[Rfam]
RNA sequence: ACUGCCAGUCUGGUAGUUAGGGUUCAGUUUUUUAUGAAAAGCCCCGCUGGUCCGGGGCUUUUUGUUGUAUUUAUAUUGAGCCGGUGCUGCUCAGACAGGGUAACGUAAAAGGUUGGGCUAAUAGGCCCUUUUUUU
Numbered sequence: 001a002c003u004g005c006c007a008g009u010c011u012g013g014u015a016g017u018u019a020g021g022g023u024u025c026a027g028u029u030u031u032u033u034a035u036g037a038a039a040a041g042c043c044c045c046g047c048u049g050g051u052c053c054g055g056g057g058c059u060u061u062u063u064g065u066u067g068u069a070u071u072u073a074u075a076u077u078g079a080g081c082c083g084g085u086g087c088u089g090c091u092c093a094g095a096c097a098g099g100g101u102a103a104c105g106u107a108a109a110a111g112g113u114u115g116g117g118c119u120a121a122u123a124g125g126c127c128c129u130u131u132u133u134u135u
Stems, first nucleotide, its partner, number of pairs: 038061009115128004